[Rfam]
RNA: U5 spliceosomal RNA
Organism: Papaver somniferum
RNA sequence: AUCCGUGAGGUAAGCACAAAGCCAACUAUUCUUUCGCCUUUUACUAAAGAAUACCGUGUGCUUGCCGUUUAUAAGCGGCAUACGCCUAUUUUUGGAGGGUUUUCUCUUUUCAAGAGGAAC
Numbered sequence: 001a002u003c004c005g006u007g008a009g010g011u012a013a014g015c016a017c018a019a020a021g022c023c024a025a026c027u028a029u030u031c032u033u034u035c036g037c038c039u040u041u042u043a044c045u046a047a048a049g050a051a052u053a054c055c056g057u058g059u060g061c062u063u064g065c066c067g068u069u070u071a072u073a074a075g076c077g078g079c080a081u082a083c084g085c086c087u088a089u090u091u092u093u094g095g096a097g098g099g100u101u102u103u104c105u106c107u108u109u110u111c112a113a114g115a116g117g118a119a120c
Stems, first nucleotide, its partner, number of pairs: 003078004009066010027053008101119006